The family of this 188-nucleotide sequence from Phaffia rhodozyma is "U2 spliceosomal RNA". The family is grouped with related families in Rfam's "U2 clan". The sequence is in the family's curated seed alignment. U2 is a small nuclear RNA (snRNA) component of the spliceosome (involved in pre-mRNA splicing). Complementary binding between U2 snRNA (in an area lying towards the 5' end but 3' to hairpin I) and the branchpoint sequence (BPS) of the intron results the bulging out of an unpaired adenosine, on the BPS, which initiates a nucleophilic attack at the intronic 5' splice site, thus starting the first of two transesterification reactions that mediate splicing. Taxonomically the source falls in Phaffia (Eukaryota, Opisthokonta, Basidiomycota, Tremellomycetes).
RNA sequence: AUCCUCUCUGGCCUUUUGGCUUAGAUCAUGUGUAGUAUCUGUUCUUAUAAGUUUAACCACUUAUAUGGGUCCACCGGACCCAUCUGGUUUACUUCUUUUUGCCUUGCCCGUCCGGCCAUCCUCUGCUUGCACGACGGCCGGACACGAUGACCUUGCCACUGCACUGCCGGCUUGUGUUGUCAGGGACC
Numbered sequence: 001a002u003c004c005u006c007u008c009u010g011g012c013c014u015u016u017u018g019g020c021u022u023a024g025a026u027c028a029u030g031u032g033u034a035g036u037a038u039c040u041g042u043u044c045u046u047a048u049a050a051g052u053u054u055a056a057c058c059a060c061u062u063a064u065a066u067g068g069g070u071c072c073a074c075c076g077g078a079c080c081c082a083u084c085u086g087g088u089u090u091a092c093u094u095c096u097u098u099u100u101g102c103c104u105u106g107c108c109c110g111u112c113c114g115g116c117c118a119u120c121c122u123c124u125g126c127u128u129g130c131a132c133g134a135c136g137g138c139c140g141g142a143c144a145c146g147a148u149g150a151c152c153u154u155g156c157c158a159c160u161g162c163a164c165u166g167c168c169g170g171c172u173u174g175u176g177u178u179g180u181c182a183g184g185g186a187c188c
Stems, first nucleotide, its partner, number of pairs: 007025003010021004046065006066082007110143008122133001124131002146181006152174001155171003